[Rfam]
RNA sequence: CCAUUAAGGAUAGCGCCAGAUCUGGGUAACCAGAUGACGAGGAAAGGGUUUAUCGAAAGGUUCGGCGGGUGACCCUAGGGAGCUGCACUCUACAGAGUAUGAAAAAAACGAUUUGUGAGAAUCGAACAAAAACAUACUCAUGCAGUUGG
Numbered sequence: 001c002c003a004u005u006a007a008g009g010a011u012a013g014c015g016c017c018a019g020a021u022c023u024g025g026g027u028a029a030c031c032a033g034a035u036g037a038c039g040a041g042g043a044a045a046g047g048g049u050u051u052a053u054c055g056a057a058a059g060g061u062u063c064g065g066c067g068g069g070u071g072a073c074c075c076u077a078g079g080g081a082g083c084u085g086c087a088c089u090c091u092a093c094a095g096a097g098u099a100u101g102a103a104a105a106a107a108a109c110g111a112u113u114u115g116u117g118a119g120a121a122u123c124g125a126a127c128a129a130a131a132a133c134a135u136a137c138u139c140a141u142g143c144a145g146u147u148g149g
Base pairs, nucleotide, nucleotide: 020035021034022033023032024031025030045076046075047074048073049072053065054064055063056062077091078090079089080088082086095139096138097137098136099135100134101133109124110123111122112121113120114119